The family of this 91-nucleotide RNA from Mizuhopecten yessoensis is "mir-7 microRNA precursor family". The family's consensus secondary structure was predicted with PFOLD. A reference for the family is Ambros (2001), "microRNAs: tiny regulators with great potential", Cell.

[Rfam]
RNA sequence: UGACACGUCUGGCCUGGAAGACUAGUGAUUUUGUUGUUUUGUGUAUAUUUAUCCAACAAUGAAUCGCUAUCUUCCCUGACCAUGUGUGUAU
Numbered sequence: 001u002g003a004c005a006c007g008u009c010u011g012g013c014c015u016g017g018a019a020g021a022c023u024a025g026u027g028a029u030u031u032u033g034u035u036g037u038u039u040u041g042u043g044u045a046u047a048u049u050u051a052u053c054c055a056a057c058a059a060u061g062a063a064u065c066g067c068u069a070u071c072u073u074c075c076c077u078g079a080c081c082a083u084g085u086g087u088g089u090a091u
Stems, first nucleotide, its partner, number of pairs: 003089006010082003014078001016076002019072003025067007033060006